[Rfam]
RNA sequence: GUAACUACAUACCAUGGUGGGCGGUUGGCCAUCUCCUGGAAGAAGGGAGGUGGUAGGAUGACGACAUUUGAAGCAUUAAGCCUAGUUGCUCAAUUCAGUUUAGCUCUAAUAGCUACACUUACUUUUGUUGUAACUAUUGUCGUCUUUCUAUACAAAAAGAAAUAGCCGCCCACGACCAAGGUAACGGCUACUUCUUUGUAUAUUUCUCAUAAUUUGGUCAGCCGCUCUUCAUGCGGCAUGUAGUUAUUACUAAGCUGGGUGUAGACGCACUCAGCU
Dot-bracket structure: (((((.(((..((.(.(((((.(.(...(((.(((((.......))))).)))......(((((((......(.(..........)).........((((...............................))))..)))))))....................))..))))).)..........((.................)).........))....((((.......))))..))).))))).....((((((((((....))))))))))
BsrG: a 276-nucleotide RNA sequence from Aquibacillus koreensis. About the family: bsrE, bsrG and bsrH pair through intermolecular interactions with antisense sRNAs. They form type I toxin/antitoxin system that includes an mRNA encoding for a short, toxic peptide (bsrE, bsrG and bsrH) and an antitoxin that is comprised of an antisense RNA. bsrG encodes a 39-amino-acid toxin, and the 180 nucleotide antisense sRNA called SR4 acts as the antitoxin (they overlap by 123 nucleotides). SR4 interaction with the 3'UTR of bsrG RNA promotes bsrG degradation and inhibits its translation. BsrG interferes with cell envelope biosynthesis, causes membrane invaginations and delocalisation of the cell wall synthesis and initiates autolysis. bsrE RNA encodes 30 amino-acid toxin peptide. Rfam links the family to the GO terms toxin activity and autolysis.